Rfam assigns this 71-nucleotide RNA sequence from Salarias fasciatus to the family "Small nucleolar RNA SNORD82". Taxonomically the source falls in Salarias (Eukaryota, Clupeocephala, Euteleosteomorpha, Blennioidei). A search with the family's covariance model found it, with a score of 53 bits. By type it is a C/D-box small nucleolar RNA. Gene Ontology terms of the family: RNA processing and nucleolus. snoRNA U82 or Z25 is found in both humans and mice. The literature on the family includes a 2002 paper in Mol Cell Biol by Galardi et al., "Purified box C/D snoRNPs are able to reproduce site-specific 2'-O-methylation of target RNA in vitro".
RNA sequence: AGCAGUUUAUGAUGAUCAACAAGGGACUUAAUACUGAUACAUGAUGUCACCUUUUAUUGUUCUGAAUCUGU
Numbered sequence: 001a002g003c004a005g006u007u008u009a010u011g012a013u014g015a016u017c018a019a020c021a022a023g024g025g026a027c028u029u030a031a032u033a034c035u036g037a038u039a040c041a042u043g044a045u046g047u048c049a050c051c052u053u054u055u056a057u058u059g060u061u062c063u064g065a066a067u068c069u070g071u
Stems, first nucleotide, its partner, number of pairs: 002071004006066001